[Rfam]
RNA sequence: GUUUUCCAUUUUCUUGAAAUUAAAAAGAAAAAAAACCGAAAUAAUGAAAAAUUCGGGGUUAGCCUUUGCCAAAGUGUACCCACCCACAAUUUACCCAGAAUUUUUAUUCAUGCAACCCCAGAUCACUGAAUACGAAAUGUAUAUCAUUUUUCACGCGGGGUUCCAACUAUGGCGGCUAGAUGAUGAAGGAAUAACAAGCAACGUACUGCUAAAUAAAAGGACUGAAGCAGCGUAUUGUUGAUAAUCAGACCUAUGCUUGGUACAAAAUUGUAAUGGAAUUAUGGAAAUCACAAUAUAAAACACAGUUUUUUGUUCAUGAUUAGUUCUCAACAAAAUUCUGGGGAAACAGGUGGAAUACCAUAAGCACCGCUUCCACAAUCAUCAACAUGUUGUAAUCUUCUUUCUUUGGAAGCAGCAGUCCUUUAUUACUUUUCUUUUAGUAAAUCCCUGAUCUGCGUAAUAUUGCAAGUUCUUUUUUAUCGGCCUCCUUAUAUAUAUAUAUAUAUAUAUAUCUAUAUUCACUAAUACUCGGGGUGUUUUUUUUUUUUUAGCCGCUGAAGUGAGGAUCAAAAAUCAAUAGCUCGGAAGGUUAAAGGUUGUUAAGAUAGUAUAUACAUAUAUAUGUACAUAUACAUAUACAUAUAUACAUUUUGAAUUACAUACUUCAGUAGGGAAUGGUAUAAAUUUUUUCGUACGGUAAUA
Numbered sequence: 001g002u003u004u005u006c007c008a009u010u011u012u013c014u015u016g017a018a019a020u021u022a023a024a025a026a027g028a029a030a031a032a033a034a035a036c037c038g039a040a041a042u043a044a045u046g047a048a049a050a051a052u053u054c055g056g057g058g059u060u061a062g063c064c065u066u067u068g069c070c071a072a073a074g075u076g077u078a079c080c081c082a083c084c085c086a087c088a089a090u091u092u093a094c095c096c097a098g099a100a101u102u103u104u105u106a107u108u109c110a111u112g113c114a115a116c117c118c119c120a121g122a123u124c125a126c127u128g129a130a131u132a133c134g135a136a137a138u139g140u141a142u143a144u145c146a147u148u149u150u151u152c153a154c155g156c157g158g159g160g161u162u163c164c165a166a167c168u169a170u171g172g173c174g175g176c177u178a179g180a181u182g183a184u185g186a187a188g189g190a191a192u193a194a195c196a197a198g199c200a201a202c203g204u205a206c207u208g209c210u211a212a213a214u215a216a217a218a219g220g221a222c223u224g225a226a227g228c229a230g231c232g233u234a235u236u237g238u239u240g241a242u243a244a245u246c247a248g249a250c251c252u253a254u255g256c257u258u259g260g261u262a263c264a265a266a267a268u269u270g271u272a273a274u275g276g277a278a279u280u281a282u283g284g285a286a287a288u289c290a291c292a293a294u295a296u297a298a299a300a301c302a303c304a305g306u307u308u309u310u311u312g313u314u315c316a317u318g319a320u321u322a323g324u325u326c327u328c329a330a331c332a333a334a335a336u337u338c339u340g341g342g343g344a345a346a347c348a349g350g351u352g353g354a355a356u357a358c359c360a361u362a363a364g365c366a367c368c369g370c371u372u373c374c375a376c377a378a379u380c381a382u383c384a385a386c387a388u389g390u391u392g393u394a395a396u397c398u399u400c401u402u403u404c405u406u407u408g409g410a411a412g413c414a415g416c417a418g419u420c421c422u423u424u425a426u427u428a429c430u431u432u433u434c435u436u437u438u439a440g441u442a443a444a445u446c447c448c449u450g451a452u453c454u455g456c457g458u459a460a461u462a463u464u465g466c467a468a469g470u471u472c473u474u475u476u477u478u479a480u481c482g483g484c485c486u487c488c489u490u491a492u493a494u495a496u497a498u499a500u501a502u503a504u505a506u507a508u509a510u511a512u513c514u515a516u517a518u519u520c521a522c523u524a525a526u527a528c529u530c531g532g533g534g535u536g537u538u539u540u541u542u543u544u545u546u547u548u549u550a551g552c553c554g555c556u557g558a559a560g561u562g563a564g565g566a567u568c569a570a571a572a573a574u575c576a577a578u579a580g581c582u583c584g585g586a587a588g589g590u591u592a593a594a595g596g597u598u599g600u601u602a603a604g605a606u607a608g609u610a611u612a613u614a615c616a617u618a619u620a621u622a623u624g625u626a627c628a629u630a631u632a633c634a635u636a637u638a639c640a641u642a643u644a645u646a647c648a649u650u651u652u653g654a655a656u657u658a659c660a661u662a663c664u665u666c667a668g669u670a671g672g673g674a675a676u677g678g679u680a681u682a683a684a685u686u687u688u689u690u691c692g693u694a695c696g697g698u699a700a701u702a
Base pairs, nucleotide, nucleotide: 044693045692046691047690048689049688050687051686055119056118057117058116059115060071062069063068074087075086076085140682141681142680143679144678145677146676170557171556172555173554174553175552176551177550178549179548180547226239227238228237229236230235282531283530284529308335309334310333311332312331313330314329341436342435343434344433345432346431596659597658599656600655601654608647609646610645611644612643613642614641
RNA: RNA of unknown function 21